CRISPR RNA direct repeat element: a 37-nucleotide RNA sequence from Defluviicoccus vanus. The organism belongs to Defluviicoccus, within Bacteria. Rfam 15.1 lists 1,291 matches to the family in 43 species. Its family is annotated with defense response in the Gene Ontology.

RNA sequence: UACUUCCGCGGCAGUAAUGCCGCGGCCUCAUUGAAGA
Numbered sequence: 001u002a003c004u005u006c007c008g009c010g011g012c013a014g015u016a017a018u019g020c021c022g023c024g025g026c027c028u029c030a031u032u033g034a035a036g037a
Stems, first nucleotide, its partner, number of pairs: 006025007